[Rfam]
RNA: Actinobacteria sRNA Ms_IGR-5
Nucleotides: 228
Stems, first nucleotide, its partner, number of pairs: 014059006060137004065132001068129004074124001155222011168188006
Number, partner (000 for none) and nucleotide at each position: 001000g002000c003000a004000c005000a006000c007000g008000g009000a010000a011000g012000g013000a014059g015058g016057u017056g018055g019054u020000c021000c022000a023000g024000g025000a026000c027000a028000u029000g030000a031000a032000g033000u034000a035000c036000u037000c038000c039000a040000g041000g042000a043000c044000g045000c046000g047000u048000g049000a050000g051000g052000u053000g054019g055018c056017u057016g058015c059014c060137c061136g062135c063134u064000a065132g066000c067000c068129g069128c070127c071126c072000g073000a074124g075000c076000a077000c078000u079000c080000g081000g082000a083000c084000g085000g086000a087000c088000u089000c090000g091000u092000c093000u094000g095000g096000u097000c098000c099000g100000c101000c102000c103000g104000u105000g106000g107000c108000c109000c110000c111000g112000c113000c114000g115000g116000u117000g118000a119000u120000c121000c122000g123000g124074c125000c126071g127070g128069g129068c130000g131000a132065c133000g134063a135062g136061c137060g138000a139000a140000u141000a142000c143000c144000g145000g146000c147000a148000g149000u150000c151000a152000c153000c154000g155222c156221a157220g158219c159218c160217c161216g162215u163214g164213g165212g166000a167000g168188c169187c170186g171185c172184g173183a174000u175000c176000u177000c178000g179000u180000c181000c182000u183173u184172c185171g186170c187169g188168g189000c190000a191000g192000g193000g194000c195000c196000c197000c198000g199000u200000c201000a202000g203000g204000g205000g206000u207000u208000c209000c210000g211000g212165c213164c214163c215162a216161c217160g218159g219158g220157c221156u222155g223000u224000u225000c226000c227000c228000u